The family of this 128-nucleotide sequence from Prunus dulcis is "U11 spliceosomal RNA". A search with the family's covariance model found it, with a score of 71 bits. Rfam links the family to the GO terms U11 snRNP, pre-mRNA 5'-splice site binding and mRNA 5'-splice site recognition.
RNA sequence: UAAAAGGGUCGGUUGGCUAAAUAUGCCACUCUCACCCUAGCUUGGUGAGUGCCGUAUGGAUAUCAAGACAUAUGGCCGACACAAUUUGUGGGGCCCCAUAGGGUUGGCUCGCUUUGGCUGACCCUCCG
Numbered sequence: 001u002a003a004a005a006g007g008g009u010c011g012g013u014u015g016g017c018u019a020a021a022u023a024u025g026c027c028a029c030u031c032u033c034a035c036c037c038u039a040g041c042u043u044g045g046u047g048a049g050u051g052c053c054g055u056a057u058g059g060a061u062a063u064c065a066a067g068a069c070a071u072a073u074g075g076c077c078g079a080c081a082c083a084a085u086u087u088g089u090g091g092g093g094c095c096c097c098a099u100a101g102g103g104u105u106g107g108c109u110c111g112c113u114u115u116g117g118c119u120g121a122c123c124c125u126c127c128g
Stems, first nucleotide, its partner, number of pairs: 008080005014028004029051001031049006052075007100125008109117003